Record summary: Shown here is a 125-nucleotide RNA from Lichenibacterium minor, a member of the family "TPP riboswitch aptamer (THI element)".

RNA sequence: ACGCGUUCCACGGAGAUCCCCGGCAAGGGGCUGAGACACCGCUGGGCCCGGCGUUCGGGCGGCGCGGAAAUCCUUAGAACCUGAUCCGGUUCGCACCGGCGUAGGGAUUGGAACCGGCUCCGCGU
Numbered sequence: 001a002c003g004c005g006u007u008c009c010a011c012g013g014a015g016a017u018c019c020c021c022g023g024c025a026a027g028g029g030g031c032u033g034a035g036a037c038a039c040c041g042c043u044g045g046g047c048c049c050g051g052c053g054u055u056c057g058g059g060c061g062g063c064g065c066g067g068a069a070a071u072c073c074u075u076a077g078a079a080c081c082u083g084a085u086c087c088g089g090u091u092c093g094c095a096c097c098g099g100c101g102u103a104g105g106g107a108u109u110g111g112a113a114c115c116g117g118c119u120c121c122g123c124g125u
Stems, first nucleotide, its partner, number of pairs: 006113005012073003018030004039067004080105004086099004
It scores 55 bits against the family's covariance model. Vitamin B(1) in its active form thiamin pyrophosphate (TPP) is an essential coenzyme that is synthesised by coupling of pyrimidine and thiazole moieties in bacteria.